[Rfam]
RNA: skipping-rope RNA
RNA sequence: GCUAUUUGAGGUGGGAAAGGUUCCCCAUGCGCUACUUUUAGUAGUUAACAGAGAUGCAGGAUAAGCCGACCUGCCGAAUAGC
Number, nucleotide and partner (000 for none) at each position: 001g082002c081003u080004a079005u078006u077007u076008g075009a000010g000011g028012u027013g026014g025015g024016a000017a000018a000019g067020g066021u065022u064023c000024c015025c014026c013027a012028u011029g000030c051031g045032c044033u043034a042035c000036u000037u000038u000039u000040a000041g000042u034043a033044g032045u031046u000047a000048a000049c000050a000051g030052a000053g000054a000055u000056g074057c073058a072059g071060g070061a000062u000063a000064a022065g021066c020067c019068g000069a000070c060071c059072u058073g057074c056075c008076g007077a006078a005079u004080a003081g002082c001